Rfam assigns this 165-nucleotide RNA sequence from Cadophora sp. MPI-SDFR-AT-0126 to the family "Small nucleolar RNA snR80".
Clan: SNORA28 clan.
Gene Ontology terms of the family: nucleolus and RNA processing.
It scores 48 bits against the family's covariance model.
Lineage of the source: Eukaryota > Ascomycota > Pezizomycotina > Helotiales > Cadophora.
The base pairs follow the family's consensus structure, which was predicted with WAR.
The family has 6 seed sequences and 447 matches in Rfam 15.1.
RNA sequence: GUACGUCUCAAACACUCUGGGCCUUGCUUCCUUUCCUUCGUGGAUCGGUUCAACCUAUGGCAUAGCCCUAUUUUUGGAAGACGAAGACUGAUUGUGUCCGAUUACUCACCGCGAUAUCUUAUCCUUCGGGCGUAGAUAUAGUGGUCCAUAUCUUCUGGUCGACAU
Number, nucleotide and partner (000 for none) at each position: 001g000002u000003a000004c000005g000006u000007c080008u079009c000010a000011a000012a000013c000014a000015c000016u000017c000018u000019g068020g067021g066022c065023c000024u000025u062026g061027c060028u059029u000030c048031c047032u000033u000034u000035c000036c000037u000038u000039c000040g000041u000042g000043g000044a000045u000046c000047g031048g030049u000050u000051c000052a000053a000054c000055c000056u000057a000058u000059g028060g027061c026062a025063u000064a000065g022066c021067c020068c019069u000070a000071u000072u000073u000074u000075u000076g000077g000078a000079a008080g007081a000082c000083g000084a000085a000086g000087a000088c000089u000090g000091a000092u000093u000094g000095u000096g160097u000098c158099c157100g000101a000102u000103u000104a000105c000106u000107c000108a000109c144110c143111g142112c141113g000114a139115u138116a137117u136118c135119u134120u000121a000122u000123c000124c000125u000126u000127c000128g000129g000130g000131c000132g000133u000134a119135g118136a117137u116138a115139u114140a000141g112142u111143g110144g109145u000146c000147c000148a000149u000150a000151u000152c000153u000154u000155c000156u000157g099158g098159u000160c096161g000162a000163c000164a000165u000